[Rfam]
Rfam assigns this 67-nucleotide sequence from Micromonospora sicca to the family "Transposase-2 RNA". The source organism's lineage runs through Bacteria, Actinomycetes, Micromonosporales, Micromonosporaceae and Micromonospora. By type it is a small RNA. The match comes from Rfam's covariance-model search (57 bits).
RNA sequence: GAAACGUCAACCCGGCACCGCCACGGCGGGUAAUACCGGGACCGUCCCACCGCAAGGUAGGACAUCC
Numbered sequence: 001g002a003a004a005c006g007u008c009a010a011c012c013c014g015g016c017a018c019c020g021c022c023a024c025g026g027c028g029g030g031u032a033a034u035a036c037c038g039g040g041a042c043c044g045u046c047c048c049a050c051c052g053c054a055a056g057g058u059a060g061g062a063c064a065u066c067c
Base pairs, nucleotide, nucleotide: 011040012039013038014037015036018029019028020027021026044063045062046061047060049058050057051056